[Rfam]
RNA sequence: GCGGUCAGCAUCUUCGACCCCGUGCGCCUAAGGCGGGAGCUACGGCGGCGGGGCGUUAGGGUUAGGCCGGAAACAGCCUGGCCUCCCGCAUUUGGAAAGAAGGUGCAGGGCCGGCCGC
Numbered sequence: 001g002c003g004g005u006c007a008g009c010a011u012c013u014u015c016g017a018c019c020c021c022g023u024g025c026g027c028c029u030a031a032g033g034c035g036g037g038a039g040c041u042a043c044g045g046c047g048g049c050g051g052g053g054c055g056u057u058a059g060g061g062u063u064a065g066g067c068c069g070g071a072a073a074c075a076g077c078c079u080g081g082c083c084u085c086c087c088g089c090a091u092u093u094g095g096a097a098a099g100a101a102g103g104u105g106c107a108g109g110g111c112c113g114g115c116c117g118c
Stems, first nucleotide, its partner, number of pairs: 003112002005109001010104006018053006025047004032041003059084009069074001085095002

This 118-nucleotide RNA sequence from Gelria sp. Kuro-4 belongs to the Rfam family "Molybdenum/Tungsten riboswitch aptamer (Moco RNA motif)". The literature on the family includes a 2007 paper in Nucleic Acids Res by Weinberg et al., "Identification of 22 candidate structured RNAs in bacteria using the CMfinder comparative genomics pipeline". A search with the family's covariance model found it, with a score of 65 bits. The family's consensus secondary structure is taken from published work.